[Rfam]
Rfam assigns this 102-nucleotide sequence from Callithrix jacchus to the family "Y RNA".

RNA sequence: GGCUGGUCCGAGUGCAGUGGUGUUUACAGCUAAUUUAUCACAACCAGCUACAAAUUGCUUUAUUACUUUUUCACUCACACUGCUUCACUUGAAUAGUCUGUU
Numbered sequence: 001g002g003c004u005g006g007u008c009c010g011a012g013u014g015c016a017g018u019g020g021u022g023u024u025u026a027c028a029g030c031u032a033a034u035u036u037a038u039c040a041c042a043a044c045c046a047g048c049u050a051c052a053a054a055u056u057g058c059u060u061u062a063u064u065a066c067u068u069u070u071u072c073a074c075u076c077a078c079a080c081u082g083c084u085u086c087a088c089u090u091g092a093a094u095a096g097u098c099u100g101u102u
Stems, first nucleotide, its partner, number of pairs: 001098005007092002010090002014086001016081004022076001028064002032060002
Dot-bracket structure: (((((.((.((..(.((((..(.....((..((.........................))..))...........).))))....)..)))).)))))....

The base pairs follow the family's consensus structure, which is taken from published work. The family's RNA type in Rfam is non-coding RNA gene.